[Rfam]
RNA sequence: GUAGGAAGAAUCCAAAGGGAUCGCAUUGAUCCUGCGACCGGCCGGCCAGUACCUAUAUGUAUUCUUUGCUUAUAGUUAUGCAAUCUAUGGUUGCUGGGAUCAUGCUAUCUCUUCGGAUUUAUCUU
Numbered sequence: 001g002u003a004g005g006a007a008g009a010a011u012c013c014a015a016a017g018g019g020a021u022c023g024c025a026u027u028g029a030u031c032c033u034g035c036g037a038c039c040g041g042c043c044g045g046c047c048a049g050u051a052c053c054u055a056u057a058u059g060u061a062u063u064c065u066u067u068g069c070u071u072a073u074a075g076u077u078a079u080g081c082a083a084u085c086u087a088u089g090g091u092u093g094c095u096g097g098g099a100u101c102a103u104g105c106u107a108u109c110u111c112u113u114c115g116g117a118u119u120u121a122u123c124u125u
Base pairs, nucleotide, nucleotide: 003125004124005123006122008120009119010118011117012116013115015113016112017111018110019109020108021107023105024104025103026102028101029100030099031098032097036094
About this RNA: Rfam assigns this 125-nucleotide sequence from Kalanchoe fedtschenkoi to the family "mir-393 microRNA precursor family". The literature on the family includes a 2012 paper in J Plant Physiol by Kruszka et al., "Role of microRNAs and other sRNAs of plants in their changing environments". Lineage of the source: Eukaryota > Spermatophyta > Mesangiospermae > Pentapetalae > Kalanchoe. Rfam 15.1 lists 1,052 matches to the family in 221 species. Its family is annotated with RISC complex and miRNA-mediated post-transcriptional gene silencing in the Gene Ontology.